[Rfam]
RNA sequence: CUGCAUGUUAUAAGCUCUUUUUCGGCUCCUUUUCUCCUUGGAGCAUGAAUACACCCAUAACAUGCUAUAUUAAAAAAGAAAAAAGGAGUUUUCAGGGCCUCCAGCCUUGAAGUAAAAGGUUGAGAGGUAGUAUAUUUCUCCUACAUUG
Dot-bracket structure: ..((((((.............(..(((((..........)))))..)............))))))...................((((........((..((((((((.......))))))).)..)).........)))).......
RNA: Small nucleolar RNA U109